Alphaproteobacteria transfer-messenger RNA: a 366-nucleotide sequence from Brevundimonas sp. AAP58. For this family Rfam cites "Phylogenetic analysis of tmRNA secondary structure" (Williams and Bartel, RNA, 1996). Lineage of the source: Bacteria > Pseudomonadati > Pseudomonadota > Caulobacterales > Brevundimonas. A search with the family's covariance model found it, with a score of 229 bits. Bacterial tmRNA, also known as 10Sa RNA or SsrA, is named for its dual tRNA and mRNA-like properties. Its role is to liberate the mRNA from a stalled ribosome. To accomplish this part of the tmRNA is used as a reading frame that ends in a translation stop signal. The broken mRNA is replaced in the ribosome by the tmRNA and translation of the tmRNA leads to addition of a proteolysis tag to the incomplete protein enabling recognition by a protease. Recently a number of permuted tmRNA genes have been found encoded in two parts. tmRNAs have been identified in eubacteria and some chloroplasts but are absent from archaeal and eukaryote nuclear genomes. Rfam classes the family as a non-coding RNA gene.
RNA sequence: UAACUUGGAAGCAAGGGCCUUGGCGCCUAUAUUGGUUCGGUCGGGGCUUCGGUCCCGACUAUGGCGAUAAACGCGCCUGUAAUAAGCGGACCGGACCCGGGUGCGAUUCCCGGCGGCUCCACCAAUCUCUUCCGCGUUAUCGGCGGGACUGUGCGGGGCCGACUAGCAUCGACGGACGUGUAAAGAGGAUUGCCUUCGCCCGUCCUGGCCCACCGCAUCGGGCCAUUUUCUAACUGCGAACGAUAACUUCGCUGGAGAAGUCCGCCUCGCCGCGUAAUGCGGUUCGGUUGAUUUCGAACACUUAAGUCCUGGGGGUUCAGAUCCCCAGGCGGGGCCCGGGGGCGCCUGGCAACAGAAGCCCCCACU
Numbered sequence: 001u002a003a004c005u006u007g008g009a010a011g012c013a014a015g016g017g018c019c020u021u022g023g024c025g026c027c028u029a030u031a032u033u034g035g036u037u038c039g040g041u042c043g044g045g046g047c048u049u050c051g052g053u054c055c056c057g058a059c060u061a062u063g064g065c066g067a068u069a070a071a072c073g074c075g076c077c078u079g080u081a082a083u084a085a086g087c088g089g090a091c092c093g094g095a096c097c098c099g100g101g102u103g104c105g106a107u108u109c110c111c112g113g114c115g116g117c118u119c120c121a122c123c124a125a126u127c128u129c130u131u132c133c134g135c136g137u138u139a140u141c142g143g144c145g146g147g148a149c150u151g152u153g154c155g156g157g158g159c160c161g162a163c164u165a166g167c168a169u170c171g172a173c174g175g176a177c178g179u180g181u182a183a184a185g186a187g188g189a190u191u192g193c194c195u196u197c198g199c200c201c202g203u204c205c206u207g208g209c210c211c212a213c214c215g216c217a218u219c220g221g222g223c224c225a226u227u228u229u230c231u232a233a234c235u236g237c238g239a240a241c242g243a244u245a246a247c248u249u250c251g252c253u254g255g256a257g258a259a260g261u262c263c264g265c266c267u268c269g270c271c272g273c274g275u276a277a278u279g280c281g282g283u284u285c286g287g288u289u290g291a292u293u294u295c296g297a298a299c300a301c302u303u304a305a306g307u308c309c310u311g312g313g314g315g316u317u318c319a320g321a322u323c324c325c326c327a328g329g330c331g332g333g334g335c336c337c338g339g340g341g342g343c344g345c346c347u348g349g350c351a352a353c354a355g356a357a358g359c360c361c362c363c364a365c366u
Base pairs, nucleotide, nucleotide: 040059041058042057043056044055045054046053047052063200064199065198066197067196073193074192075191076188077187078186087178088177091175092174093173097113098112099111100110101109114161115160116159117158118157119156120155201215202214206225207224208223209222210221211220332347333346334345335344338363339362340361341360342359343358